[Rfam]
RNA sequence: GCUGGUGCUUGAAAUAGAUCACAGGGGAACAUUCCUGGGCGGUAGUGACGUGAUUGCAAGACGUGAUUACCGUUUACAUA
Numbered sequence: 001g002c003u004g005g006u007g008c009u010u011g012a013a014a015u016a017g018a019u020c021a022c023a024g025g026g027g028a029a030c031a032u033u034c035c036u037g038g039g040c041g042g043u044a045g046u047g048a049c050g051u052g053a054u055u056g057c058a059a060g061a062c063g064u065g066a067u068u069a070c071c072g073u074u075u076a077c078a079u080a
Stems, first nucleotide, its partner, number of pairs: 022037005038074009048064004
RNA: COG2827 RNA